[Rfam]
RNA sequence: GUGAAGGUCAAACCAAAACACACAUGUACCGACACAUACUCCGGGGUGCCUGCAAAGGUCGGUGGUAUGGGGUACAUGGAGGCUCAAC
Numbered sequence: 001g002u003g004a005a006g007g008u009c010a011a012a013c014c015a016a017a018a019c020a021c022a023c024a025u026g027u028a029c030c031g032a033c034a035c036a037u038a039c040u041c042c043g044g045g046g047u048g049c050c051u052g053c054a055a056a057g058g059u060c061g062g063u064g065g066u067a068u069g070g071g072g073u074a075c076a077u078g079g080a081g082g083c084u085c086a087a088c
Base pairs, nucleotide, nucleotide: 023078024077025076026075027074028073029072030071035069036068037067038066039065041062042061043060048059049058050057051056
Shown here is an 88-nucleotide RNA from bacteria symbiont BFo2 of Frankliniella occidentalis, a member of the family "t44 RNA". The base pairs follow the family's consensus structure, which was predicted with LocARNA. It scores 76 bits against the family's covariance model. The family's RNA type in Rfam is small RNA. Taxonomically the source falls in Enterobacterales (Bacteria, Pseudomonadati, Pseudomonadota, Gammaproteobacteria).